Source information: This 382-nucleotide sequence from Sinobaca qinghaiensis belongs to the Rfam family "Bacterial RNase P class B". The organism belongs to Sinobaca, within Bacteria. Pairs were carried over by alignment from the consensus structure, which is taken from published work. Ribonuclease P (RNase P) is a ubiquitous endoribonuclease, found in archaea, bacteria and eukarya as well as chloroplasts and mitochondria. The match comes from Rfam's covariance-model search (324 bits).
RNA sequence: CAUUCUAGGCAAUCGCUGUACUCUUCGAUGAGUGCAGAGGAAAGUCCAUGCUCGCACAGCCUGGGAUGGCUGUAGUGUUCGUGCCUGACGAAUGCAUAAGUCAGGGCAUCUCUUUUAAGGGAUGACGGCGGAGAAGUAACCUACGUCGUCAAGAUAUGGUUACGGUAUCCUUAAUGUGCCACAGUGACGUAGUUUUUCCGGAAACGGAAAAAGUGGAACGGGGUAAACCCCUCGAGCGAGAAACCCAAAAUAAGGUAGGGGCGCCUUUCUGAAGGAACCAAACGGAAAGAAAGGGCAGAUUCGUCUGCAGAUAGAUGAUUGCCGCCGGAGUGCGAGGUUAAGAGCCGUUUUAGCACGAAGGAACAGAACAUGGCUUACAUGA
Numbered sequence: 001c002a003u004u005c006u007a008g009g010c011a012a013u014c015g016c017u018g019u020a021c022u023c024u025u026c027g028a029u030g031a032g033u034g035c036a037g038a039g040g041a042a043a044g045u046c047c048a049u050g051c052u053c054g055c056a057c058a059g060c061c062u063g064g065g066a067u068g069g070c071u072g073u074a075g076u077g078u079u080c081g082u083g084c085c086u087g088a089c090g091a092a093u094g095c096a097u098a099a100g101u102c103a104g105g106g107c108a109u110c111u112c113u114u115u116u117a118a119g120g121g122a123u124g125a126c127g128g129c130g131g132a133g134a135a136g137u138a139a140c141c142u143a144c145g146u147c148g149u150c151a152a153g154a155u156a157u158g159g160u161u162a163c164g165g166u167a168u169c170c171u172u173a174a175u176g177u178g179c180c181a182c183a184g185u186g187a188c189g190u191a192g193u194u195u196u197u198c199c200g201g202a203a204a205c206g207g208a209a210a211a212a213g214u215g216g217a218a219c220g221g222g223g224u225a226a227a228c229c230c231c232u233c234g235a236g237c238g239a240g241a242a243a244c245c246c247a248a249a250a251u252a253a254g255g256u257a258g259g260g261g262c263g264c265c266u267u268u269c270u271g272a273a274g275g276a277a278c279c280a281a282a283c284g285g286a287a288a289g290a291a292a293g294g295g296c297a298g299a300u301u302c303g304u305c306u307g308c309a310g311a312u313a314g315a316u317g318a319u320u321g322c323c324g325c326c327g328g329a330g331u332g333c334g335a336g337g338u339u340a341a342g343a344g345c346c347g348u349u350u351u352a353g354c355a356c357g358a359a360g361g362a363a364c365a366g367a368a369c370a371u372g373g374c375u376u377a378c379a380u381g382a
Base pairs, nucleotide, nucleotide: 004382005381008323009322010321011320012319013318014317016037017036018035019034020033021032042376043375044374046373047372048371049370050369051240052239053238054237055236056073057072058071059070060069061068079235080234081233083231084105085104086103087102088101089100106126107124108123109122110121111120112119127230128229130170131169132168138161139160140159141158145155146154147153176228177227178224179223180222193212194211195210196209197208198207199206200205244260245259246258264294265293266292267291268290269289270288295308296307297306298305299304325361326360330356331355332354333353